Description: Rfam assigns this 115-nucleotide RNA from Microcebus murinus to the family "Y RNA". For this family Rfam cites "Conserved features of Y RNAs: a comparison of experimentally derived secondary structures" (Teunissen et al., Nucleic Acids Res, 2000).
RNA sequence: GGCUGGUCCGAAGGUCGUGAGUUAUCUCACUUGAUUGUUCACAGUCAGUUACAGAUUGAACUCCUUGUUCUACUACUUUCCUCCCCUCCUCACUACUGCACUUGACUAGUCUAAA
Dot-bracket structure: ((((((((.((..((.(((((.....................(((.((.....................))...)))...........)))))....))..))))))))))....
NCBI's taxonomy places the organism under Eukaryota, Sarcopterygii, Mammalia, Theria, Microcebus.